[Rfam]
RNA sequence: UGCAAAAUGAUGAGAAACUUUACUCUGAAUUUUAUAUGUUGAAUUCAUUAUAGUACCUUCAAAGUUCUCUGAUUGCU
Dot-bracket structure: .((((...................................................................)))).